Rfam assigns this 82-nucleotide RNA from Caenorhabditis japonica to the family "SmY spliceosomal RNA". Lineage of the source: Eukaryota > Metazoa > Eumetazoa > Nematoda > Caenorhabditis. Rfam classes the family as a spliceosomal small nuclear RNA.
[Rfam]
RNA sequence: AAAUCUGCCAGCCUAGUUACAGGGCCUUUAAGAAGACCCACAGUAAAAAUUUUGAAAACCCUGUUCUUUUUAGGCCAGGGUA
Numbered sequence: 001a002a003a004u005c006u007g008c009c010a011g012c013c014u015a016g017u018u019a020c021a022g023g024g025c026c027u028u029u030a031a032g033a034a035g036a037c038c039c040a041c042a043g044u045a046a047a048a049a050u051u052u053u054g055a056a057a058a059c060c061c062u063g064u065u066c067u068u069u070u071u072a073g074g075c076c077a078g079g080g081u082a
Base pairs, nucleotide, nucleotide: 022039023038024037026035027034028033058081059080060079061078062077063076065074066073067072